[Rfam]
RNA sequence: AACGGGAAAGCCGAAAACCGAUUAGAGUAGGUA
Numbered sequence: 001a002a003c004g005g006g007a008a009a010g011c012c013g014a015a016a017a018c019c020g021a022u023u024a025g026a027g028u029a030g031g032u033a
Base pairs, nucleotide, nucleotide: 003020004019005018010032011031012030